[Rfam]
RNA sequence: UCCAUCGUGAGGUGGAAUCUGAAGGAAGCUUAAGGCAAAAUCUCGGUCUGAUGAACAAGAACCAGAUAAGAGGCUGAAUUGGGAUGGAUGAGUUUGCGUAACAAAACGAAGUCCAACACUACCCGAAUCCCAUAUAGUAAAUCUGGCAGAUAUAUGAGAUGAAAGUUAUCGUU
Numbered sequence: 001u002c003c004a005u006c007g008u009g010a011g012g013u014g015g016a017a018u019c020u021g022a023a024g025g026a027a028g029c030u031u032a033a034g035g036c037a038a039a040a041u042c043u044c045g046g047u048c049u050g051a052u053g054a055a056c057a058a059g060a061a062c063c064a065g066a067u068a069a070g071a072g073g074c075u076g077a078a079u080u081g082g083g084a085u086g087g088a089u090g091a092g093u094u095u096g097c098g099u100a101a102c103a104a105a106a107c108g109a110a111g112u113c114c115a116a117c118a119c120u121a122c123c124c125g126a127a128u129c130c131c132a133u134a135u136a137g138u139a140a141a142u143c144u145g146g147c148a149g150a151u152a153u154a155u156g157a158g159a160u161g162a163a164a165g166u167u168a169u170c171g172u173u
Stems, first nucleotide, its partner, number of pairs: 001016006028173001030171001032169001035166002040160006046151005062146006073138003080132005086114004092107004

The record is a 173-nucleotide sequence from Thermoanaerobacter brockii, which matches "Group II catalytic intron D1-D4-3" in Rfam. Taxonomically the source falls in Thermoanaerobacter brockii (Bacteria, Bacillati, Thermoanaerobacterales, Thermoanaerobacter). Rfam describes the family as follows. Group II introns are found in rRNA, tRNA and mRNA of organelles in fungi, plants and protists, and also in mRNA in bacteria. Pairs were carried over by alignment from the consensus structure.